A member of the RNA family "drz-agam-1 ribozyme" from Aedes aegypti, 123 nucleotides long.
[Rfam]
RNA sequence: UGCCCAGCAACUCCUAUCCCUACCCCCUCGUGGUACUGGCCGGGGUAUGAGUAACCUUAGGGAAGAUCGGGUAACCAACCCCGGUGAGAGCUUUGGUCGUAUGCUGAUUUUGAAGGGGGGAGG
Numbered sequence: 001u002g003c004c005c006a007g008c009a010a011c012u013c014c015u016a017u018c019c020c021u022a023c024c025c026c027c028u029c030g031u032g033g034u035a036c037u038g039g040c041c042g043g044g045g046u047a048u049g050a051g052u053a054a055c056c057u058u059a060g061g062g063a064a065g066a067u068c069g070g071g072u073a074a075c076c077a078a079c080c081c082c083g084g085u086g087a088g089a090g091c092u093u094u095g096g097u098c099g100u101a102u103g104c105u106g107a108u109u110u111u112g113a114a115g116g117g118g119g120g121a122g123g
Stems, first nucleotide, its partner, number of pairs: 013123003017119005022034003045110001047108002050105004

The match comes from Rfam's covariance-model search (51 bits). Rfam links the family to the GO term catalytic activity. The family's consensus secondary structure is taken from published work.